[Rfam]
RNA sequence: GUCAGUUACGUGUAUUCUUGGGUAAAUAAUACAACUUUAGGCUGUUAUUGCUUGAGAAUACACGUAAUCGCC
Numbered sequence: 001g002u003c004a005g006u007u008a009c010g011u012g013u014a015u016u017c018u019u020g021g022g023u024a025a026a027u028a029a030u031a032c033a034a035c036u037u038u039a040g041g042c043u044g045u046u047a048u049u050g051c052u053u054g055a056g057a058a059u060a061c062a063c064g065u066a067a068u069c070g071c072c
Stems, first nucleotide, its partner, number of pairs: 001072001003070001005068001008065003012061012025049007032041001